[Rfam]
RNA sequence: CCCCCCCUUGAAAGGGUGGGCUAUUCUCGGCCGUCCCUGCGGGACU
Numbered sequence: 001c002c003c004c005c006c007c008u009u010g011a012a013a014g015g016g017u018g019g020g021c022u023a024u025u026c027u028c029g030g031c032c033g034u035c036c037c038u039g040c041g042g043g044a045c046u
Stems, first nucleotide, its partner, number of pairs: 001020003005016004033045005
Acido-Lenti-1 RNA: a 46-nucleotide RNA sequence from Planctomyces sp. SH-PL14.
The match comes from Rfam's covariance-model search (40 bits).
Rfam classes the family as a small RNA.
The source organism's lineage runs through Bacteria, Planctomycetota, Planctomycetia, Planctomycetales and Planctomyces.